[Rfam]
RNA sequence: CGUAAUAAACGUGAUGGUGUUCGCGUAUAACUAUCGAAAGAUUGAUGACACCUACCUUCAU
Numbered sequence: 001c002g003u004a005a006u007a008a009a010c011g012u013g014a015u016g017g018u019g020u021u022c023g024c025g026u027a028u029a030a031c032u033a034u035c036g037a038a039a040g041a042u043u044g045a046u047g048a049c050a051c052c053u054a055c056c057u058u059c060a061u
Stems, first nucleotide, its partner, number of pairs: 010025004016052006033042003

The record is a 61-nucleotide sequence from Ligilactobacillus ubinensis, which matches "Fluoride riboswitch aptamer (crcB RNA motif)" in Rfam. The match comes from Rfam's covariance-model search (38 bits). The source organism's lineage runs through Bacteria, Bacillati, Bacillota, Bacilli and Ligilactobacillus. The family's consensus secondary structure is taken from published work.